[Rfam]
RNA: sok antitoxin (CssrC)
Organism: Candidatus Regiella insecticola
RNA sequence: GGGUGCUUGAGGCUUUCUGGUUUGAGCAUGCUCGAUAGGCAGAAAGACAAAAGCCCCGAGUUAUUUUUCAAUUAACCCGAGGCUCUCAUAUGACCAAACAGCAUAAGAAUAGCCUCUUAACAGCAAUAAUGCAAUCGGAGGUUAAAAUG
Numbered sequence: 001g002g003g004u005g006c007u008u009g010a011g012g013c014u015u016u017c018u019g020g021u022u023u024g025a026g027c028a029u030g031c032u033c034g035a036u037a038g039g040c041a042g043a044a045a046g047a048c049a050a051a052a053g054c055c056c057c058g059a060g061u062u063a064u065u066u067u068u069c070a071a072u073u074a075a076c077c078c079g080a081g082g083c084u085c086u087c088a089u090a091u092g093a094c095c096a097a098a099c100a101g102c103a104u105a106a107g108a109a110u111a112g113c114c115u116c117u118u119a120a121c122a123g124c125a126a127u128a129a130u131g132c133a134a135u136c137g138g139a140g141g142u143u144a145a146a147a148u149g
Stems, first nucleotide, its partner, number of pairs: 001057003005054004011048001013046007021038002026033001058078001060076002063072003079116005086108002089105004121140001124137001